[Rfam]
RNA sequence: UUUUUUAGGGAAGAGCUGGUCUCCCUUCAAAGGGAGACCAGGAAACUUCCCC
Number, nucleotide and partner (000 for none) at each position: 001u000002u000003u000004u000005u000006u000007a000008g052009g051010g050011a000012a048013g047014a000015g000016c041017u040018g039019g038020u037021c036022u035023c034024c033025c032026u000027u000028c000029a000030a000031a000032g025033g024034g023035a022036g021037a020038c019039c018040a017041g016042g000043a000044a000045a000046c000047u013048u012049c000050c010051c009052c008

Overview: Rfam assigns this 52-nucleotide RNA from Lentivirus humimdef1 to the family "HIV Ribosomal frameshift signal". This family represents the HIV Ribosomal frameshift signal. HIV uses a system called -1 ribosomal frameshifting to produce the required ratio of Gag and Gag-Pol polyproteins. For this family Rfam cites "The human immunodeficiency virus type 1 ribosomal frameshifting site is an invariant sequence determinant and an important target for antiviral therapy" (Biswas et al., J Virol, 2004). Pairs were carried over by alignment from the consensus structure, which is taken from published work. It is annotated as a frameshift element.